[Rfam]
Shown here is a 68-nucleotide RNA from Prevotella sp. CAG:386, a member of the family "Bacteroidetes FopS (family of paralogous sRNAs)".
Pairs were carried over by alignment from the consensus structure, which is taken from published work.
Rfam's curators write: The RNA-binding protein RbpB and BTncRNA_FopS sRNA are involved in the post-transcription regulation of polysaccharide utilisation loci (PUL). FopS sRNAs function as post-transcriptional repressors by binding to the vicinity of the start codon of the first mRNA of target PUL polycistrons, typically corresponding to the cognate SusC homolog, impeding translation of the respective glycan transporter.
Rfam 15.1 lists 822 matches to the family in 178 species.
RNA sequence: GUGUUUUUCAUAGUAUUAGAUUUAAGGUUAACAACAUGGGGUCACGGCGGUGGCCCAUUUUUUUUGCC
Numbered sequence: 001g002u003g004u005u006u007u008u009c010a011u012a013g014u015a016u017u018a019g020a021u022u023u024a025a026g027g028u029u030a031a032c033a034a035c036a037u038g039g040g041g042u043c044a045c046g047g048c049g050g051u052g053g054c055c056c057a058u059u060u061u062u063u064u065u066g067c068c
Stems, first nucleotide, its partner, number of pairs: 039056007